mir-153 microRNA precursor family: a 60-nucleotide RNA sequence from Ornithorhynchus anatinus. Its family is annotated with miRNA-mediated post-transcriptional gene silencing and RISC complex in the Gene Ontology.
[Rfam]
RNA sequence: UCAUUUUUGUGAUGUUGCAGCUAGUAAUAUGAGCCCAGUUGCAUAGUCACAAAAGUGAUC
Numbered sequence: 001u002c003a004u005u006u007u008u009g010u011g012a013u014g015u016u017g018c019a020g021c022u023a024g025u026a027a028u029a030u031g032a033g034c035c036c037a038g039u040u041g042c043a044u045a046g047u048c049a050c051a052a053a054a055g056u057g058a059u060c
Base pairs, nucleotide, nucleotide: 001058002057003056004055005054006053007052008051009050010049011048012047013046016043017042018041019040020039021038022037